[Rfam]
This 600-nucleotide part of an RNA from Thermoanaerobacterium thermosaccharolyticum belongs to the Rfam family "Bacterial large subunit ribosomal RNA". The organism belongs to Thermoanaerobacterium thermosaccharolyticum, within Bacteria. The family is grouped with related families in Rfam's "LSU clan". It is one of the family's seed sequences. Pairs were carried over by alignment from the consensus structure, which is taken from published work.
RNA sequence: GAGUUAUAGAUAUGCAGCGAGGUUAAGCGAAAGCGGAGCCGAAGCGAAAGCGAGUCUUAAGAGGGCGAAAGUUGCAUAUCAUAGACCCGAAACCGUGCGACCUACCCAUGAUCAGGGUGAAGCCGGAGUAAGAUCUGGUGGAGGCCCGAACCACGUUGACGUUGAAAAGUCAUGGGAUGAAUUGUGGGUAGCGGAGAAAUUCCAAUCGAGCUCGGAGAUAGCUGGUUCUCCCCGAAAUAGCUUUAGGGCUAGCCUCAGGGGUGAAAAAUAUGGAGGUAGAGCACUGAAUGGACUAGGGGCCAAAAAGGUUACCGAACCCUAUCAAACUCCGAAUGCCAUAUUGAGAACCCUGGGAGUCAGACUACGAGUGAUAAGAUCCGUGGUCAAAAGGGAAACAGCCCAGACCGACAGCUAAGGUCCCAAAGAGCAUGUUAAGUGGGAAAGGAAGUAGGAUUUCCAAGACAACCAGGAUGUUGGCUUAGAAGCAGCCAUACAUUCAAAGAGUGCGUAAUAGCUCACUGGUCGAGAAAUCCCGCGCCGAAAAUAAACGGGGCUAAAACAUGCCACCGAAGCUACGGAUUCGAAAGAAUGGUAGGGGAG
Dot-bracket structure: ....(((.((((((((((..((((..((....))..))))...((....))..((((.....))))....)))))))))))))..((.(...(((.((...((((((((((((.((((...((((((......))))))....))))...((.(..((((........)))).)))..).))))))))))).(((.....)))......)).)))......).))..((((((....(((((....))))).((((((((......(((((((.....(((...(((..((....((((((.....)))).))....))..)))..)).).....))))))).....))))))).)...(((((((.((......)).)))))))....(((......)))...(((..(((...(((......(.((((((...........((..((.(((((((.......(((((.(((..(((.........)))...)))(...)(...((......)).).)))))...))))))).)).))...................))))))))))...))).)))((((....))))....))))))